[Rfam]
RNA sequence: UGGUAGCUGCCGCCCAAUCGCCCGCGGGCGAGCCGGGGACCCGAGCACAUCGGGGUGAAUCCGCGCAAGCGGUAGGGACACCUUCCGUCCCGAACCCGUCAGCUAACCCGGUCGGCGGCCGAGGGAAGGAAC
Dot-bracket structure: ..........((((...(((........)))((((((....((.......))(((.....((((....))))..((((.........))))...))).........)))))).))))...............
RNA: c-di-AMP riboswitch aptamer (ydaO/yuaA leader)
Organism: Virgisporangium aurantiacum